Shown here is a 140-nucleotide RNA sequence from Jimgerdemannia flammicorona, a member of the family "Group II catalytic intron D1-D4-7". Gene Ontology term of the family: Group II intron splicing.

RNA sequence: CUAUUUUUGCCAUAAACCUACCAACAGGUGCGUAGUUGGUAACGAUUACGUGCUAAGCUGUUGGGACAAUGUAAGAUAUAUUCUAAGCACAUGAAUAUACGCUGCUAGGUUAGACUACUAUGAAUAACAUAGUGAAUAGA
Numbered sequence: 001c002u003a004u005u006u007u008u009g010c011c012a013u014a015a016a017c018c019u020a021c022c023a024a025c026a027g028g029u030g031c032g033u034a035g036u037u038g039g040u041a042a043c044g045a046u047u048a049c050g051u052g053c054u055a056a057g058c059u060g061u062u063g064g065g066a067c068a069a070u071g072u073a074a075g076a077u078a079u080a081u082u083c084u085a086a087g088c089a090c091a092u093g094a095a096u097a098u099a100c101g102c103u104g105c106u107a108g109g110u111u112a113g114a115c116u117a118c119u120a121u122g123a124a125u126a127a128c129a130u131a132g133u134g135a136a137u138a139g140a
Base pairs, nucleotide, nucleotide: 022063023062024061025060026059027054028053029052030051031050032049033048034047035046036045037044038043078098079097080096081095082094083093102109103108117133118132119131120130121129122128

Group II introns are found in rRNA, tRNA and mRNA of organelles in fungi, plants and protists, and also in mRNA in bacteria.